Notes:
The family of this 90-nucleotide sequence from Caldicellulosiruptor owensensis is "c-di-GMP-I-GGC riboswitch aptamer". The family's consensus secondary structure is taken from published work. It scores 72 bits against the family's covariance model. Rfam 15.1 lists 1,298 matches to the family in 717 species. Lineage of the source: Bacteria > Caldicellulosiruptorales > Caldicellulosiruptoraceae > Caldicellulosiruptor > Caldicellulosiruptor owensensis.
RNA sequence: GUCGAGAAGGGCAAACCUGUCGAAAGGCAGGGGCGCAAAGCCAUGGGCCUGUCGGAAGAAAAUCUUCCUAUGGUCGCCAGGCUGCCGAAA
Numbered sequence: 001g002u003c004g005a006g007a008a009g010g011g012c013a014a015a016c017c018u019g020u021c022g023a024a025a026g027g028c029a030g031g032g033g034c035g036c037a038a039a040g041c042c043a044u045g046g047g048c049c050u051g052u053c054g055g056a057a058g059a060a061a062a063u064c065u066u067c068c069u070a071u072g073g074u075c076g077c078c079a080g081g082c083u084g085c086c087g088a089a090a
Base pairs, nucleotide, nucleotide: 003087004086011036012035016031017030018029019028020027021026034076039083040082041081042080044079045078046077047074048073049072